Rfam assigns this 64-nucleotide sequence from Danaus chrysippus to the family "mir-2 microRNA precursor family". The family has 56 seed sequences and 918 matches in Rfam 15.1. The base pairs follow the family's consensus structure, which was predicted with PFOLD.

[Rfam]
RNA sequence: GAAGACGACAAAGAGGUUGUGAAAUGUCUCCUAAUCAUAUCACAGCCAGCUUUGUUGACUUCCU
Numbered sequence: 001g002a003a004g005a006c007g008a009c010a011a012a013g014a015g016g017u018u019g020u021g022a023a024a025u026g027u028c029u030c031c032u033a034a035u036c037a038u039a040u041c042a043c044a045g046c047c048a049g050c051u052u053u054g055u056u057g058a059c060u061u062c063c064u
Base pairs, nucleotide, nucleotide: 006057007056008055009054010053011052012051013050015047016046017045018044019043020042021041022040025039026038027037